RNA sequence: UUGAUGUCAUUGUGUGUUGCACAAUUACAGCCUCACACUAAGUUGAUUAGUUAAUGCUGCUACUAAUGAGGCCUAAACAGUUGUUUCCCUCGCUAUCCAAGGCUGAAUAUAUGUUGUCUUUGGAUGUUGGGAAACUACAUUA
Numbered sequence: 001u002u003g004a005u006g007u008c009a010u011u012g013u014g015u016g017u018u019g020c021a022c023a024a025u026u027a028c029a030g031c032c033u034c035a036c037a038c039u040a041a042g043u044u045g046a047u048u049a050g051u052u053a054a055u056g057c058u059g060c061u062a063c064u065a066a067u068g069a070g071g072c073c074u075a076a077a078c079a080g081u082u083g084u085u086u087c088c089c090u091c092g093c094u095a096u097c098c099a100a101g102g103c104u105g106a107a108u109a110u111a112u113g114u115u116g117u118c119u120u121u122g123g124a125u126g127u128u129g130g131g132a133a134a135c136u137a138c139a140u141u142a
Stems, first nucleotide, its partner, number of pairs: 001076002003073001005071001008068003017065001021061001028059004033054001037051003083135007091126002096124005105114001107112001
The record is a 142-nucleotide RNA from Ricinus communis, which matches "Small nucleolar RNA snoR136" in Rfam. The match comes from Rfam's covariance-model search (60 bits). The literature on the family includes a 2009 paper in Nucleic Acids Res by Chen and Wu, "Mining small RNA sequencing data: a new approach to identify small nucleolar RNAs in Arabidopsis". Rfam links the family to the GO terms nucleolus and RNA processing.